[Rfam]
RNA: Small nucleolar RNA Z199
Nucleotides: 082
Base pairs, nucleotide, nucleotide: 001082002081004080005079006078038048039047040046
Number, partner (000 for none) and nucleotide at each position: 001082g002081g003000a004080u005079c006078a007000a008000a009000u010000g011000a012000u013000g014000a015000g016000c017000c018000u019000g020000a021000a022000a023000g024000a025000c026000c027000a028000a029000c030000a031000a032000c033000a034000u035000g036000a037000u038048g039047g040046a041000u042000u043000c044000g045000u046040u047039c048038c049000a050000u051000g052000a053000u054000u055000c056000u057000u058000u059000c060000c061000u062000c063000g064000u065000u066000u067000u068000a069000a070000g071000u072000c073000u074000c075000u076000g077000a078006u079005g080004a081002u082001c